[Rfam]
RNA: ZMP/ZTP riboswitch aptamer (pfl RNA motif)
Organism: Paenibacillus selenitireducens
RNA sequence: AAGGCUGUAUGUGACUGGCGAAUCAAGUGGAAUGAACCACAGGGAAGCAUGCAGUUGGAACGAACCGAUCGCCUGGGAAAAGUAU
Numbered sequence: 001a002a003g004g005c006u007g008u009a010u011g012u013g014a015c016u017g018g019c020g021a022a023u024c025a026a027g028u029g030g031a032a033u034g035a036a037c038c039a040c041a042g043g044g045a046a047g048c049a050u051g052c053a054g055u056u057g058g059a060a061c062g063a064a065c066c067g068a069u070c071g072c073c074u075g076g077g078a079a080a081a082g083u084a085u
Stems, first nucleotide, its partner, number of pairs: 003056010015044002017073005027040004065077002